[Rfam]
RNA: Purine riboswitch aptamer
Organism: Paenibacillus algicola
RNA sequence: CAACGAUAUAUAAGCUUUUUUCGUAUAAUCCUGGGAAUCGGCCCGGGAGUCUCUACAAGGUCACCGUAAUGAUCUGGCUACGAAAAGAAAUGCAAGCUUU
Numbered sequence: 001c002a003a004c005g006a007u008a009u010a011u012a013a014g015c016u017u018u019u020u021u022c023g024u025a026u027a028a029u030c031c032u033g034g035g036a037a038u039c040g041g042c043c044c045g046g047g048a049g050u051c052u053c054u055a056c057a058a059g060g061u062c063a064c065c066g067u068a069a070u071g072a073u074c075u076g077g078c079u080a081c082g083a084a085a086a087g088a089a090a091u092g093c094a095a096g097c098u099u100u
Stems, first nucleotide, its partner, number of pairs: 018086008029048007058075006